[Rfam]
RNA sequence: CACCUCUGGAAAGCAGGCGCGCGCCCGGAAACGGGGACGGGACGCCUCACCGAAGGGGAAAUUCCGCGCGCGUGCGCGGGGGAAGCUCUCAGGUGCCACGACAGAGGGGGA
Numbered sequence: 001c002a003c004c005u006c007u008g009g010a011a012a013g014c015a016g017g018c019g020c021g022c023g024c025c026c027g028g029a030a031a032c033g034g035g036g037a038c039g040g041g042a043c044g045c046c047u048c049a050c051c052g053a054a055g056g057g058g059a060a061a062u063u064c065c066g067c068g069c070g071c072g073u074g075c076g077c078g079g080g081g082g083a084a085g086c087u088c089u090c091a092g093g094u095g096c097c098a099c100g101a102c103a104g105a106g107g108g109g110g111a
Stems, first nucleotide, its partner, number of pairs: 001109001003107006015047004049094003052090002056088003062081008